[Rfam]
Background
The record is a 95-nucleotide RNA sequence from Setaria viridis, which matches "Small nucleolar RNA R64/Z200 family" in Rfam. The family's consensus secondary structure was predicted with PFOLD. By type it is a C/D-box small nucleolar RNA. The literature on the family includes a 2002 paper in Mol Cell Biol by Galardi et al., "Purified box C/D snoRNPs are able to reproduce site-specific 2'-O-methylation of target RNA in vitro". Lineage of the source: Eukaryota > Viridiplantae > Embryophyta > Poaceae > Setaria.

RNA sequence: AAAUUGCUAUGAUGAAUCAUGAAAAUAUAAUCGCAUGUCAGACUUCAGAGAUGCAAUUGCAUUGAUGAGAAGAUAUUUCAUGUUCUGAGAAGUGG
Numbered sequence: 001a002a003a004u005u006g007c008u009a010u011g012a013u014g015a016a017u018c019a020u021g022a023a024a025a026u027a028u029a030a031u032c033g034c035a036u037g038u039c040a041g042a043c044u045u046c047a048g049a050g051a052u053g054c055a056a057u058u059g060c061a062u063u064g065a066u067g068a069g070a071a072g073a074u075a076u077u078u079c080a081u082g083u084u085c086u087g088a089g090a091a092g093u094g095g
Base pairs, nucleotide, nucleotide: 003093004092005091007089050063051062052061053060